[Rfam]
RNA sequence: CAAAAAAGGUAGAGUGAACCUCUGCCUAGUCAUAUUUUUCAAUAUGGCUAAACCUUCAAAUUGACGGGAAAGCUCUAAAGCAAUUUCAACCAAACAAAUGUGGUAACACAUUUGUGGCACAGGUAAUGACUCGUGGUAUGGUAACAUAGAAAUUGAUGACGAAAGGAAAUGGGUUAUCCGCAGCCAAACACCACUACUUUAAAUAACAUACAGUAGGUUUGUAAGCAGCUCGAGUGAAGUUUAAAUAAAUAACAAGAGCGUACCUUUUGUAUAAAGGGUCUUCACUACAAACUAGCCCCCCUAGCGGGGGCUUGUCCCCCGCUAUAUAUUUUUUUUUAUAUUUUUAUCGCGUCUACCCCUCCGGGGAAGUAAUAAAAAUAACUACAAAAAAAGAAAGUGGGGGCGAGGCCCCCGUAGGGGGGGGUACUAGGAAGUGUUAUUUAAAAUAGGGGUGUGCAGUUCAUCGACUAUAAGGAGGUUGGUACAUAAUUAGAAAGUAAUUUUAAAAAUUAUUUGCUUAAGAUAUAGUCAGGCAUAAUUUAAAAGUUAUG
Number, nucleotide and partner (000 for none) at each position: 001c000002a000003a000004a000005a000006a000007a000008g000009g000010u000011a000012g000013a000014g000015u000016g000017a000018a000019c000020c000021u000022c000023u000024g000025c000026c000027u000028a000029g000030u000031c000032a000033u000034a000035u000036u000037u000038u000039u000040c000041a000042a000043u000044a000045u000046g000047g000048c000049u000050a000051a480052a479053c478054c477055u476056u000057c474058a000059a000060a000061u000062u182063g181064a000065c180066g179067g178068g177069a000070a000071a000072g000073c173074u172075c171076u000077a000078a000079a000080g000081c000082a000083a000084u000085u000086u000087c000088a000089a000090c000091c000092a000093a000094a000095c000096a000097a000098a000099u000100g000101u000102g000103g000104u000105a000106a000107c000108a000109c000110a000111u000112u000113u000114g000115u000116g000117g000118c000119a000120c000121a000122g000123g000124u000125a000126a000127u000128g000129a000130c000131u000132c000133g000134u000135g000136g000137u000138a000139u000140g000141g000142u000143a000144a000145c000146a000147u000148a000149g000150a000151a000152a000153u000154u000155g000156a000157u000158g000159a000160c000161g000162a000163a000164a000165g000166g000167a000168a000169a000170u000171g075172g074173g073174u000175u000176a000177u068178c067179c066180g065181c063182a062183g460184c459185c000186a000187a000188a455189c454190a453191c452192c000193a000194c000195u448196a447197c000198u445199u444200u443201a442202a441203a440204u439205a438206a437207c436208a435209u434210a000211c000212a000213g000214u000215a000216g000217g000218u000219u000220u000221g000222u000223a000224a000225g000226c000227a000228g000229c000230u000231c000232g000233a000234g000235u000236g000237a000238a000239g000240u000241u000242u000243a000244a000245a000246u000247a000248a000249a000250u000251a000252a000253c000254a000255a000256g000257a000258g000259c000260g000261u000262a000263c000264c000265u000266u000267u000268u000269g000270u000271a000272u000273a000274a000275a000276g000277g000278g000279u000280c000281u000282u000283c000284a000285c000286u000287a000288c000289a000290a000291a000292c000293u000294a000295g000296c000297c000298c000299c000300c000301c000302u000303a000304g000305c000306g000307g000308g000309g000310g000311c000312u000313u000314g000315u000316c000317c000318c000319c000320c000321g000322c000323u000324a000325u000326a000327u000328a000329u000330u000331u000332u000333u000334u000335u000336u000337u000338a000339u000340a000341u000342u000343u000344u000345u000346a000347u000348c000349g000350c000351g000352u000353c000354u000355a000356c000357c000358c000359c000360u000361c000362c000363g000364g000365g000366g000367a000368a000369g000370u000371a000372a000373u000374a000375a000376a000377a000378a000379u000380a000381a000382c000383u000384a000385c000386a000387a000388a000389a000390a000391a000392a000393g000394a000395a000396a000397g000398u000399g000400g000401g000402g000403g000404c000405g000406a000407g000408g000409c000410c000411c000412c000413c000414g000415u000416a000417g000418g000419g000420g000421g000422g000423g000424g000425u000426a000427c000428u000429a000430g000431g000432a000433a000434g209435u208436g207437u206438u205439a204440u203441u202442u201443a200444a199445a198446a000447u196448a195449g000450g000451g000452g191453u190454g189455u188456g000457c000458a000459g184460u183461u000462c000463a000464u531465c000466g530467a529468c528469u527470a526471u000472a000473a000474g057475g000476a055477g054478g053479u052480u051481g000482g517483u516484a515485c000486a513487u512488a511489a510490u509491u000492a000493g000494a000495a000496a000497g000498u000499a000500a000501u000502u000503u000504u000505a000506a000507a000508a000509a490510u489511u488512a487513u486514u000515u484516g483517c482518u000519u000520a000521a000522g000523a000524u000525a000526u470527a469528g468529u467530c466531a464532g000533g000534c000535a000536u549537a548538a547539u546540u545541u000542a000543a000544a000545a540546g539547u538548u537549a536550u000551g000
The record is a 551-nucleotide RNA from Lasiodiplodia theobromae, which matches "Group I catalytic intron" in Rfam. The organism belongs to Lasiodiplodia, within Eukaryota. The family has 12 seed sequences and 5,602 matches in Rfam 15.1. Rfam links the family to the GO term Group I intron splicing. It scores 54 bits against the family's covariance model.